[Rfam]
RNA sequence: ACACUGUAGAGAAGUUAUGUCGUUGUGUUUUCGCACUACAUAUUGAAGGGGAGCGAUGCCAAAUAUGUAGGCAGUGU
Number, nucleotide and partner (000 for none) at each position: 001a077002c076003a075004c074005u073006g072007u000008a000009g032010a031011g030012a029013a000014g000015u000016u000017a000018u000019g000020u000021c000022g000023u000024u000025g000026u000027g000028u000029u012030u011031u010032c009033g000034c000035a000036c000037u069038a068039c067040a066041u065042a064043u063044u062045g000046a000047a000048g000049g000050g000051g000052a000053g000054c000055g000056a000057u000058g000059c000060c000061a000062a044063a043064u042065a041066u040067g039068u038069a037070g000071g000072c006073a005074g004075u003076g002077u001
RNA: CyVA-1 RNA
Organism: Hyella patelloides